[Rfam]
Nucleotides: 118
Base pairs, nucleotide, nucleotide: 002073003072004071006070007069008068009067010066011065013063015062016061017060020056021055022054025051026050027049028048030046032044033043099116100115103112104111105110
Number, partner (000 for none) and nucleotide at each position: 001000c002073a003072g004071a005000g006070a007069u008068g009067u010066c011065c012000c013063u014000u015062g016061u017060g018000u019000u020056c021055g022054g023000u024000c025051g026050a027049a028048u029000c030046g031000u032044u033043g034000c035000c036000u037000g038000a039000a040000g041000a042000a043033c044032a045000u046030c047000g048028a049027u050026u051025c052000u053000c054022c055021c056020g057000c058000u059000a060017c061016a062015c063013a064000a065011g066010g067009g068008c069007a070006u071004u072003c073002u074000c075000g076000u077000u078000c079000u080000a081000c082000g083000c084000c085000a086000c087000g088000c089000u090000c091000a092000a093000c094000c095000a096000a097000c098000c099116g100115a101000c102000c103112u104111c105110a106000u107000c108000g109000g110105u111104g112103g113000a114000u115100u116099c117000a118000g
Shown here is a 118-nucleotide RNA from Nocardioides sp. S5, a member of the family "Actinobacteria sRNA Ms_IGR-7". The base pairs follow the family's consensus structure. Rfam classes the family as a small RNA. Lineage of the source: Bacteria > Bacillati > Actinomycetota > Actinomycetes > Nocardioides.